Annotation: Rfam assigns this 133-nucleotide RNA from Sagittula stellata to the family "FMN riboswitch aptamer (RFN element)". Pairs were carried over by alignment from the consensus structure, which is taken from published work. The match comes from Rfam's covariance-model search (108 bits).
RNA sequence: CCGCGUUCUCAGGGCGGGGUGAAACUCCCCACCGGCGGUAAAAGCCCGCGAGCGCCCCUCCACAAGGAGGGGGUCAAGCAGAUCCGGUGGAACUCCGGAGCCGACGGUCAAAGUCCGGAUGGAAGAGACGCGA
Numbered sequence: 001c002c003g004c005g006u007u008c009u010c011a012g013g014g015c016g017g018g019g020u021g022a023a024a025c026u027c028c029c030c031a032c033c034g035g036c037g038g039u040a041a042a043a044g045c046c047c048g049c050g051a052g053c054g055c056c057c058c059u060c061c062a063c064a065a066g067g068a069g070g071g072g073g074u075c076a077a078g079c080a081g082a083u084c085c086g087g088u089g090g091a092a093c094u095c096c097g098g099a100g101c102c103g104a105c106g107g108u109c110a111a112a113g114u115c116c117g118g119a120u121g122g123a124a125g126a127g128a129c130g131c132g133a
Stems, first nucleotide, its partner, number of pairs: 002132004007128004017029003031114002033103002035049004044101002052079002083099005105117003